[Rfam]
RNA sequence: UUGUAACACGAACCGGUGCUAAAGGGUCCCUGUCCCGACAGCACCUGUCAGUAGCCGUUGGCCAGGACACUUUAGCACUAGUUCGUGUUACAAA
Numbered sequence: 001u002u003g004u005a006a007c008a009c010g011a012a013c014c015g016g017u018g019c020u021a022a023a024g025g026g027u028c029c030c031u032g033u034c035c036c037g038a039c040a041g042c043a044c045c046u047g048u049c050a051g052u053a054g055c056c057g058u059u060g061g062c063c064a065g066g067a068c069a070c071u072u073u074a075g076c077a078c079u080a081g082u083u084c085g086u087g088u089u090a091c092a093a094a
Base pairs, nucleotide, nucleotide: 003091004090005089006088007087008086009085010084011083012082013081015079016078017077018076019075020074021073022072023071024070026068027067029066030065034061035060038058039057045051046050

Rfam assigns this 94-nucleotide RNA sequence from Sorghum bicolor to the family "MIR5387 microRNA precursor family".
NCBI's taxonomy places the organism under Eukaryota, Petrosaviidae, commelinids, Poales, Sorghum.
It scores 79 bits against the family's covariance model.
Pairs were carried over by alignment from the consensus structure, which was predicted with RNAalifold.